[Rfam]
RNA: Plastid-psbA-3 3UTR RNA
Organism: Chimonanthus praecox
RNA sequence: AAGGAGCAAUGCCCAAUUUCUUGUUCUAUCAAGAAGUUUGGUAUUGCUCCGUUU
Numbered sequence: 001a002a003g004g005a006g007c008a009a010u011g012c013c014c015a016a017u018u019u020c021u022u023g024u025u026c027u028a029u030c031a032a033g034a035a036g037u038u039u040g041g042u043a044u045u046g047c048u049c050c051g052u053u054u
Base pairs, nucleotide, nucleotide: 001052003050004049005048006047007046008045009044010043011042012041013040018035019034020033021032022031023030